[Rfam]
RNA sequence: AGCUUUGCGCAGCGGCGGUACCGUAGCCAGUGAAGUUUUGUCUGAGGCGCGGUUAUUGCUAGUUGAAAACUAAACCAAUUCCCCGCCAGUUCGGAGUGAAAUACCUUCUGCUGGCAAUUUUUUACCGGCCAACUGUGGC
Numbered sequence: 001a002g003c004u005u006u007g008c009g010c011a012g013c014g015g016c017g018g019u020a021c022c023g024u025a026g027c028c029a030g031u032g033a034a035g036u037u038u039u040g041u042c043u044g045a046g047g048c049g050c051g052g053u054u055a056u057u058g059c060u061a062g063u064u065g066a067a068a069a070c071u072a073a074a075c076c077a078a079u080u081c082c083c084c085g086c087c088a089g090u091u092c093g094g095a096g097u098g099a100a101a102u103a104c105c106u107u108c109u110g111c112u113g114g115c116a117a118u119u120u121u122u123u124a125c126c127g128g129c130c131a132a133c134u135g136u137g138g139c
Stems, first nucleotide, its partner, number of pairs: 020053005026048003034043002085115006093108004128139004